[Rfam]
Nucleotides: 150
Stems, first nucleotide, its partner, number of pairs: 003148008017029003031130002033119002035062004057117002065095002099115005121133003
Number, partner (000 for none) and nucleotide at each position: 001000a002000a003148u004147a005146a006145u007144c008143u009142u010141c011000a012000g013000g014000g015000c016000a017029g018028g019027g020000c021000g022000a023000a024000a025000u026000u027019c028018c029017c030000u031130a032129c033119c034118g035062g036061c037060g038059g039000u040000a041000a042000c043000u044000g045000c046000u047000u048000a049000u050000a051000g052000c053000a054000g055000a056000a057117g058116c059038c060037c061036g062035c063000g064000a065095g066094c067000g068000c069000u070000u071000u072000c073000u074000a075000a076000u077000a078000a079000a080000a081000a082000u083000a084000g085000a086000a087000a088000g089000g090000u091000c092000a093000a094066g095065c096000a097000g098000a099115u100114u101113u102112g103111g104000u105000g106000u107000a108000a109000u110000u111103c112102c113101a114100a115099a116058g117057c118034c119033g120000a121133c122132a123131g124000u125000u126000a127000a128000a129032g130031u131123c132122u133121g134000g135000a136000u137000g138000a139000a140000a141010g142009a143008a144007g145006a146005u147004u148003g149000a150000g

The record is a 150-nucleotide RNA from Francisella tularensis, which matches "FMN riboswitch aptamer (RFN element)" in Rfam. Taxonomically the source falls in Francisella tularensis subsp. novicida (Bacteria, Pseudomonadota, Gammaproteobacteria, Francisella tularensis).